This 67-nucleotide RNA sequence from Bombyx mori belongs to the Rfam family "mir-2774 microRNA precursor family". Its family is annotated with RISC complex and miRNA-mediated post-transcriptional gene silencing in the Gene Ontology. The match comes from Rfam's covariance-model search (66 bits).
RNA sequence: AUAAUAUUCGGACCGUCGGUCUACCGAGCAAUAUCACCCGCUCAGAGGAAAAAUUUCCCUUUGUCGU
Numbered sequence: 001a002u003a004a005u006a007u008u009c010g011g012a013c014c015g016u017c018g019g020u021c022u023a024c025c026g027a028g029c030a031a032u033a034u035c036a037c038c039c040g041c042u043c044a045g046a047g048g049a050a051a052a053a054u055u056u057c058c059c060u061u062u063g064u065c066g067u
Stems, first nucleotide, its partner, number of pairs: 004064003010058003016052001020049003024045001026043004
Source information
A reference for the family is Liu et al. (2010), "MicroRNAs of Bombyx mori identified by Solexa sequencing", BMC Genomics. The source organism's lineage runs through Eukaryota, Metazoa, Eumetazoa, Amphiesmenoptera and Bombyx.